[Rfam]
RNA sequence: CCUCCCGCUUUUCCUCCCUGAGCGGGUGCCUGAUGUGUGACAGCAACAAGGCUUCUUACCCCGGUCCUGUCGACCGGGGUUUUUUUU
Numbered sequence: 001c002c003u004c005c006c007g008c009u010u011u012u013c014c015u016c017c018c019u020g021a022g023c024g025g026g027u028g029c030c031u032g033a034u035g036u037g038u039g040a041c042a043g044c045a046a047c048a049a050g051g052c053u054u055c056u057u058a059c060c061c062c063g064g065u066c067c068u069g070u071c072g073a074c075c076g077g078g079g080u081u082u083u084u085u086u087u
Base pairs, nucleotide, nucleotide: 004026005025006024007023008022009021028052029051030050031049036046059079060078061077062076063075064074065073066072
RNA: Burkholderia RNA 7 (anti-hemB)